MIR2655 microRNA precursor family: a 252-nucleotide sequence from Trifolium subterraneum. Lineage of the source: Eukaryota > Streptophytina > fabids > Trifolieae > Trifolium. The family has 25 seed sequences and 892 matches in Rfam 15.1. Rfam links the family to the GO terms miRNA-mediated post-transcriptional gene silencing and RISC complex.
RNA sequence: CCCUUAUCUUUUAAAAGUUUCAAAUUGGUCCCUUAUCUUUAUUUUAGGUUUCAAAUUGGUCCCUUCCGUCAAUUUUUUUACUGUUACUGUUAAAAUUGAACUCGUGUCAUCUGUCCAAGUGUGCCACGUGUCCAAAUUAGUUUGCCACGUGUCCAAAUUUAACAGAAAUAGUUAAAAAAUUGACGGAAGGGACCAACUUGAAACCUAAAAUAAAGAUAAGGGACCAACUUUAAACUUUUAAAAGAUAAGGGA
Numbered sequence: 001c002c003c004u005u006a007u008c009u010u011u012u013a014a015a016a017g018u019u020u021c022a023a024a025u026u027g028g029u030c031c032c033u034u035a036u037c038u039u040u041a042u043u044u045u046a047g048g049u050u051u052c053a054a055a056u057u058g059g060u061c062c063c064u065u066c067c068g069u070c071a072a073u074u075u076u077u078u079u080a081c082u083g084u085u086a087c088u089g090u091u092a093a094a095a096u097u098g099a100a101c102u103c104g105u106g107u108c109a110u111c112u113g114u115c116c117a118a119g120u121g122u123g124c125c126a127c128g129u130g131u132c133c134a135a136a137u138u139a140g141u142u143u144g145c146c147a148c149g150u151g152u153c154c155a156a157a158u159u160u161a162a163c164a165g166a167a168a169u170a171g172u173u174a175a176a177a178a179a180u181u182g183a184c185g186g187a188a189g190g191g192a193c194c195a196a197c198u199u200g201a202a203a204c205c206u207a208a209a210a211u212a213a214a215g216a217u218a219a220g221g222g223a224c225c226a227a228c229u230u231u232a233a234a235c236u237u238u239u240a241a242a243a244g245a246u247a248a249g250g251g252a
Base pairs, nucleotide, nucleotide: 002250003249004248005247006246007245008244023229025227027225028224029223031221032220033219034218035217036216037215038214039213040212041211042210043209045207046206047205

Pairs were carried over by alignment from the consensus structure, which was predicted with RNAalifold.